RNA sequence: UCGUCGGUGCAAGUCCGACCCGGCCAACUCUCGCUCCGGCCGGAAGCACAGGGAGCGGUCCAGGAGGUAACGAAUGGGCUGAAGCACUUCUUGAAACGGCCUCGAAGGAGGUCAGCGGGCCCUGCGGGCCGCAACGUGA
Numbered sequence: 001u002c003g004u005c006g007g008u009g010c011a012a013g014u015c016c017g018a019c020c021c022g023g024c025c026a027a028c029u030c031u032c033g034c035u036c037c038g039g040c041c042g043g044a045a046g047c048a049c050a051g052g053g054a055g056c057g058g059u060c061c062a063g064g065a066g067g068u069a070a071c072g073a074a075u076g077g078g079c080u081g082a083a084g085c086a087c088u089u090c091u092u093g094a095a096a097c098g099g100c101c102u103c104g105a106a107g108g109a110g111g112u113c114a115g116c117g118g119g120c121c122c123u124g125c126g127g128g129c130c131g132c133a134a135c136g137u138g139a
Base pairs, nucleotide, nucleotide: 020043021042022041023040024039051091052090053089054088055087056081057080058079059078060077061076066071098113099112100111101110102109103108115132116131117130
Group II catalytic intron D1-D4-4: a 139-nucleotide RNA from Zoogloea oleivorans. On this family, see Chu et al., EMBO J 2001: "Control of branch-site choice by a group II intron". It scores 83 bits against the family's covariance model. Pairs were carried over by alignment from the consensus structure. Rfam describes the family as follows. Group II introns are found in rRNA, tRNA and mRNA of organelles in fungi, plants and protists, and also in mRNA in bacteria. Rfam 15.1 lists 840 matches to the family in 506 species.